[Rfam]
RNA sequence: AACGUGCUCCGGGGUCGGUGAAAGUCCGAACCGGCGGUGACAGUCCGCGACCCGCGAGCGUGAGCCAGGCGAGAGCCCCGGCCCACGCGGACGGUUGAGCCGGUGGAAUUCCGGCACCGACAGUAAGAGUCUGGAUGGGAGAAGCACGCA
Numbered sequence: 001a002a003c004g005u006g007c008u009c010c011g012g013g014g015u016c017g018g019u020g021a022a023a024g025u026c027c028g029a030a031c032c033g034g035c036g037g038u039g040a041c042a043g044u045c046c047g048c049g050a051c052c053c054g055c056g057a058g059c060g061u062g063a064g065c066c067a068g069g070c071g072a073g074a075g076c077c078c079c080g081g082c083c084c085a086c087g088c089g090g091a092c093g094g095u096u097g098a099g100c101c102g103g104u105g106g107a108a109u110u111c112c113g114g115c116a117c118c119g120a121c122a123g124u125a126a127g128a129g130u131c132u133g134g135a136u137g138g139g140a141g142a143a144g145c146a147c148g149c150a
Stems, first nucleotide, its partner, number of pairs: 003148006010141001016028003030130002032119002034048004043117002052094002099115005121133003

The family of this 150-nucleotide RNA from Micrococcus sp. HMSC067E09 is "FMN riboswitch aptamer (RFN element)". Lineage of the source: Bacteria > Bacillati > Actinomycetota > Micrococcaceae > Micrococcus.